[Rfam]
RNA sequence: GCGCAGAGUAGAAGCGUUCAGCCGCACGAUGUUCCACGCAGCAUCCAGGCAGGAAAUUGCUCUUUCA
Numbered sequence: 001g002c003g004c005a006g007a008g009u010a011g012a013a014g015c016g017u018u019c020a021g022c023c024g025c026a027c028g029a030u031g032u033u034c035c036a037c038g039c040a041g042c043a044u045c046c047a048g049g050c051a052g053g054a055a056a057u058u059g060c061u062c063u064u065u066c067a
Base pairs, nucleotide, nucleotide: 005063006062007061008060009059010058015052018054019053021050022049025048028045029044030043031042032041033040
This 67-nucleotide sequence from Variovorax paradoxus belongs to the Rfam family "Xanthine riboswitch aptamer (NMT1 RNA)".
The organism belongs to Variovorax paradoxus, within Bacteria.